[Rfam]
RNA sequence: AAAACUUAUGUACAAUUCUUUAGGUGUUUUUCGUGUGGUUCUUAACUAAAAAUACAUUUUUUUUGGAGAUAACAAACUUUGAGAAAAUUAUGAAUUUAAGAAAAUCAUGUAAAUUUAGUUAAGAACCAUAGAAAAAACACUUAAGGAGUUGCACUUAAGUUUU
Numbered sequence: 001a002a003a004a005c006u007u008a009u010g011u012a013c014a015a016u017u018c019u020u021u022a023g024g025u026g027u028u029u030u031u032c033g034u035g036u037g038g039u040u041c042u043u044a045a046c047u048a049a050a051a052a053u054a055c056a057u058u059u060u061u062u063u064u065g066g067a068g069a070u071a072a073c074a075a076a077c078u079u080u081g082a083g084a085a086a087a088u089u090a091u092g093a094a095u096u097u098a099a100g101a102a103a104a105u106c107a108u109g110u111a112a113a114u115u116u117a118g119u120u121a122a123g124a125a126c127c128a129u130a131g132a133a134a135a136a137a138c139a140c141u142u143a144a145g146g147a148g149u150u151g152c153a154c155u156u157a158a159g160u161u162u163u
Base pairs, nucleotide, nucleotide: 002162003161004160005159006158007157008156010154011153013151015149016148017147018146019145020144021143022142023141024140025139027137028136029135030134031133034130035129036128037127038126039125040124041123042122043121045119046118047117048116049115050114

The record is a 163-nucleotide RNA from Medicago truncatula, which matches "MIR2606 microRNA precursor family" in Rfam.